Annotation:
The family of this 70-nucleotide sequence from Gorilla gorilla is "Small nucleolar RNA SNORD63".
RNA sequence: GUGCUGUGAUGUAUUUGUCAACACAUCACUCUGAAGAAAAGUAUGUGGUGACUUCCUGUGACUGAGCAUG
Numbered sequence: 001g002u003g004c005u006g007u008g009a010u011g012u013a014u015u016u017g018u019c020a021a022c023a024c025a026u027c028a029c030u031c032u033g034a035a036g037a038a039a040a041g042u043a044u045g046u047g048g049u050g051a052c053u054u055c056c057u058g059u060g061a062c063u064g065a066g067c068a069u070g
Stems, first nucleotide, its partner, number of pairs: 001069004
Rfam 15.1 lists 795 matches to the family in 549 species. About the family: snoRNA U63 is found in both humans and mice. The family's RNA type in Rfam is C/D-box small nucleolar RNA. NCBI's taxonomy places the organism under Eukaryota, Eumetazoa, Craniata, Teleostomi, Gorilla gorilla.